RNA: mir-150 microRNA precursor family
Organism: Anolis carolinensis
RNA sequence: CUCUCUUUCCCUCUCUCCCAACCCUUGUACCAGUGCCAACUGUAGUCCUCACUGGUACAGAGGAUGGAAGGGUGGGCCUGCAGA
Number, nucleotide and partner (000 for none) at each position: 001c000002u000003c000004u000005c000006u000007u000008u000009c000010c075011c074012u000013c000014u071015c070016u068017c067018c066019c000020a000021a000022c000023c060024c000025u000026u059027g058028u057029a056030c055031c054032a053033g000034u000035g000036c000037c000038a000039a000040c000041u000042g000043u000044a000045g000046u000047c000048c000049u000050c000051a000052c000053u032054g031055g030056u029057a028058c027059a026060g023061a000062g000063g000064a000065u000066g018067g017068a016069a000070g015071g014072g000073u000074g011075g010076g000077c000078c000079u000080g000081c000082a000083g000084a000